This 147-nucleotide RNA from Cohnella thailandensis belongs to the Rfam family "c-di-AMP riboswitch aptamer (ydaO/yuaA leader)". Rfam links the family to the GO terms cyclic-di-AMP binding and regulation of gene expression. It scores 79 bits against the family's covariance model. The source organism's lineage runs through Bacteria, Bacillati, Bacilli, Paenibacillaceae and Cohnella.

[Rfam]
RNA sequence: ACUAAGAUUACGCUUAAUUCCGGGUAUCUCGCCUGGAAGCGGGGGAACCAAUCUUAGGGGCGAAUUGCUGCUUGCUUCGGCAAGAGCAUAGGGGACCAUCUUACCCGAGCCCGUCAGCUAACCUCGUAGGCAGUAGAUGGGUCAAUU
Numbered sequence: 001a002c003u004a005a006g007a008u009u010a011c012g013c014u015u016a017a018u019u020c021c022g023g024g025u026a027u028c029u030c031g032c033c034u035g036g037a038a039g040c041g042g043g044g045g046a047a048c049c050a051a052u053c054u055u056a057g058g059g060g061c062g063a064a065u066u067g068c069u070g071c072u073u074g075c076u077u078c079g080g081c082a083a084g085a086g087c088a089u090a091g092g093g094g095a096c097c098a099u100c101u102u103a104c105c106c107g108a109g110c111c112c113g114u115c116a117g118c119u120a121a122c123c124u125c126g127u128a129g130g131c132a133g134u135a136g137a138u139g140g141g142u143c144a145a146u147u
Stems, first nucleotide, its partner, number of pairs: 012131003018038008039127006049057001058112003066088004091106003